[Rfam]
RNA: Fluoride riboswitch aptamer (crcB RNA motif)
RNA sequence: CACGCCCUUGGAGAUGGCGUUCCUCCCUUAACCACCGCACGUUCGUUCGCGGUUAAUGACGCCUACAGUUAC
Numbered sequence: 001c002a003c004g005c006c007c008u009u010g011g012a013g014a015u016g017g018c019g020u021u022c023c024u025c026c027c028u029u030a031a032c033c034a035c036c037g038c039a040c041g042u043u044c045g046u047u048c049g050c051g052g053u054u055a056a057u058g059a060c061g062c063c064u065a066c067a068g069u070u071a072c
Stems, first nucleotide, its partner, number of pairs: 010026004016063006034053004